Shown here is a 160-nucleotide RNA sequence, a member of the family "U1 spliceosomal RNA".
Nucleotides: 160
Stems, first nucleotide, its partner, number of pairs: 012118004017047005023042005048088003054082003058078003061074002090113003093109003097105002134159005141152004
Number, partner (000 for none) and nucleotide at each position: 001000a002000u003000a004000c005000u006000u007000a008000c009000c010000u011000g012118g013117a014116u015115g016000g017047g018046g019045u020044c021043a022000a023042u024041g025040g026039g027038u028000g029000a030000u031000c032000a033000a034000g035000a036000a037000g038027g039026c040025c041024c042023a043021u044020g045019g046018c047017u048088a049087g050086g051000c052000a053000a054082g055081u056080g057000a058078c059077c060076u061074c062073c063000a064000u065000u066000g067000c068000a069000c070000u071000u072000a073062g074061g075000a076060g077059g078058g079000g080056u081055g082054c083000u084000a085000g086050c087049c088048u089000a090113a091112g092111g093109u094108c095107u096000a097105c098104c099000c100000a101000a102000g103000u104098g105097g106000u107095g108094g109093a110000g111092c112091c113090u114000a115015c116014a117013u118012c119000a120000u121000a122000a123000u124000u125000u126000g127000u128000u129000g130000c131000u132000g133000u134159g135158g136157g137156g138155g139000c140000c141152u142151g143150u144149g145000u146000u147000c148000g149144c150143g151142c152141g153000g154000c155138c156137c157136c158135c159134u160000c
The family's consensus secondary structure is taken from published work. From the family's description: U1 is a small nuclear RNA (snRNA) component of the spliceosome (involved in pre-mRNA splicing). Its 5' end forms complementary base pairs with the 5' splice junction, thus defining the 5' donor site of an intron. There are significant differences in sequence and secondary structure between metazoan and yeast U1 snRNAs, the latter being much longer (568 nucleotides as compared to 164 nucleotides in human). Nevertheless, secondary structure predictions suggest that all U1 snRNAs share a 'common core' consisting of helices I, II, the proximal region of III, and IV. This family does not contain the larger yeast sequences. Rfam classes the family as a spliceosomal small nuclear RNA.